[Rfam]
RNA sequence: UUAGCGGAAUCCGAAAAGCUAUGACAGAGUAGGAA
Number, nucleotide and partner (000 for none) at each position: 001u000002u021003a020004g019005c018006g000007g000008a000009a000010u034011c033012c032013g000014a000015a000016a000017a000018g005019c004020u003021a002022u000023g000024a000025c000026a000027g000028a000029g000030u000031a000032g012033g011034a010035a000

Overview:
A member of the RNA family "DUF805b RNA", 35 nucleotides long.